RNA sequence: GUGGGUUAUGGCGAUAUGGUGCCAAAAACCUAUAUUGGCAUGUUUGUGGGUGCAUUAUGUGCUCUAGCCGGUGUACUAACCAUUGCACUGCCAGUGCCCGUUAUUGUUAGCAAC
Numbered sequence: 001g002u003g004g005g006u007u008a009u010g011g012c013g014a015u016a017u018g019g020u021g022c023c024a025a026a027a028a029c030c031u032a033u034a035u036u037g038g039c040a041u042g043u044u045u046g047u048g049g050g051u052g053c054a055u056u057a058u059g060u061g062c063u064c065u066a067g068c069c070g071g072u073g074u075a076c077u078a079a080c081c082a083u084u085g086c087a088c089u090g091c092c093a094g095u096g097c098c099c100g101u102u103a104u105u106g107u108u109a110g111c112a113a114c
Stems, first nucleotide, its partner, number of pairs: 001114002004111001008107004013102003018097001021095002037077002040074001049063003
A member of the RNA family "Potassium channel RNA editing signal" from Lucilia cuprina, 114 nucleotides long. The family has 85 seed sequences and 14,095 matches in Rfam 15.1. This family represents a group of sequences related to the human potassium channel Kv1.1 hairpin element which directs the efficient modification of an adenosine to inosine by an adenosine deaminase acting on RNA (ADAR). The ADAR modification causes an isoleucine/valine recoding event which lies in the ion-conducting pore of the potassium channel. It is thought that this editing event targets the process of fast inactivation and allows a more rapid recovery from inactivation at negative potentials. Taxonomically the source falls in Lucilia (Eukaryota, Bilateria, Insecta, Calliphoridae). By type it is a cis-regulatory element.